[Rfam]
RNA sequence: UACGAGUCGACAAAACGCGAGAUGCGUAUUUGGAUGAGGACACCAGCCUUAAUUGGCAGACACGGGAAGUGUUGGUGUUUGACCAACCUGAUGUGAACAGAAGUAGUCACC
Numbered sequence: 001u002a003c004g005a006g007u008c009g010a011c012a013a014a015a016c017g018c019g020a021g022a023u024g025c026g027u028a029u030u031u032g033g034a035u036g037a038g039g040a041c042a043c044c045a046g047c048c049u050u051a052a053u054u055g056g057c058a059g060a061c062a063c064g065g066g067a068a069g070u071g072u073u074g075g076u077g078u079u080u081g082a083c084c085a086a087c088c089u090g091a092u093g094u095g096a097a098c099a100g101a102a103g104u105a106g107u108c109a110c111c
Stems, first nucleotide, its partner, number of pairs: 007033004012029001015027004039079006046057003059073005081108003088100002

The record is a 111-nucleotide sequence from Lactobacillus apis, which matches "COG3610-DE RNA" in Rfam.
Taxonomically the source falls in Lactobacillus (Bacteria, Bacillota, Lactobacillales, Lactobacillaceae).
The base pairs follow the family's consensus structure, which is taken from published work.
It scores 76 bits against the family's covariance model.